[Rfam]
RNA sequence: AGAGCUGAAGCGGGGAGCAUAGUUGAGGAACACAUAGCCCCGCGCUUGGUCGAUGGUAUGGAAGAGGGGGUUCCAGUCGAAGAAGACCAGAAGGCUGCCCGGCAGGGUGUUGGCCACGAACAUCUUGCCCGAGGCGACCAUGUUGGCGCGCGA
Numbered sequence: 001a002g003a004g005c006u007g008a009a010g011c012g013g014g015g016a017g018c019a020u021a022g023u024u025g026a027g028g029a030a031c032a033c034a035u036a037g038c039c040c041c042g043c044g045c046u047u048g049g050u051c052g053a054u055g056g057u058a059u060g061g062a063a064g065a066g067g068g069g070g071u072u073c074c075a076g077u078c079g080a081a082g083a084a085g086a087c088c089a090g091a092a093g094g095c096u097g098c099c100c101g102g103c104a105g106g107g108u109g110u111u112g113g114c115c116a117c118g119a120a121c122a123u124c125u126u127g128c129c130c131g132a133g134g135c136g137a138c139c140a141u142g143u144u145g146g147c148g149c150g151c152g153a
Base pairs, nucleotide, nucleotide: 002035004033006032007031011027014024015023037057038056039055041052042051066151068149071081072080073079087146088145089144090143092141094139098134099133100131101130102129103127104126105125106124107123108122110119111118112117

Rfam assigns this 153-nucleotide sequence from Rubellimicrobium sp. CFH 75288 to the family "Ruegeria cis2 sRNA". The family's consensus secondary structure was predicted with RNAfold. Lineage of the source: Bacteria > Pseudomonadati > Alphaproteobacteria > Rhodobacterales > Rubellimicrobium. On this family, see Rivers et al., Front Microbiol 2016: "Experimental Identification of Small Non-Coding RNAs in the Model Marine Bacterium Ruegeria pomeroyi DSS-3".